[Rfam]
RNA sequence: CCGGCUGAGGAGCGCUGCAGCGGUUUUACCGUCAGGCUCAGCCGGAUGCACCCUGAAACAUGAACACGGCGCUCAUCCAGA
Numbered sequence: 001c002c003g004g005c006u007g008a009g010g011a012g013c014g015c016u017g018c019a020g021c022g023g024u025u026u027u028a029c030c031g032u033c034a035g036g037c038u039c040a041g042c043c044g045g046a047u048g049c050a051c052c053c054u055g056a057a058a059c060a061u062g063a064a065c066a067c068g069g070c071g072c073u074c075a076u077c078c079a080g081a
Stems, first nucleotide, its partner, number of pairs: 002044007021031003
Rfam assigns this 81-nucleotide RNA sequence from Thioalkalivibrio versutus to the family "SAH (S-adenosyl-L-homocysteine) riboswitch aptamer". The base pairs follow the family's consensus structure, which is taken from published work. The organism belongs to Thioalkalivibrio, within Bacteria. Its family is annotated with S-adenosylhomocysteine metabolic process and regulation of gene expression in the Gene Ontology.